RNA sequence: AUAGAAUAUUAGCAAAAUUAGAGAAAUCUAAUGACGCAAAGCUAGAUGGGCUAAAGUCUUACACCAUGCCAGCCAGUUGCCAAA
Numbered sequence: 001a002u003a004g005a006a007u008a009u010u011a012g013c014a015a016a017a018u019u020a021g022a023g024a025a026a027u028c029u030a031a032u033g034a035c036g037c038a039a040a041g042c043u044a045g046a047u048g049g050g051c052u053a054a055a056g057u058c059u060u061a062c063a064c065c066a067u068g069c070c071a072g073c074c075a076g077u078u079g080c081c082a083a084a
Base pairs, nucleotide, nucleotide: 012037013036017032018031019030020029021028022027040078041077042076043075048073049070050069051068056064057063

Annotation: A member of the RNA family "c-di-GMP-I riboswitch aptamer" from Clostridium cadaveris, 84 nucleotides long. The organism belongs to Clostridium, within Bacteria. From the family's description: GEMM was predicted in a large-scale screen for bacterial structured RNA regulatory elements. Genes associated with GEMM are involved in a diverse array of functions, including chemotaxis regulation, signal transduction, secretion and chitin.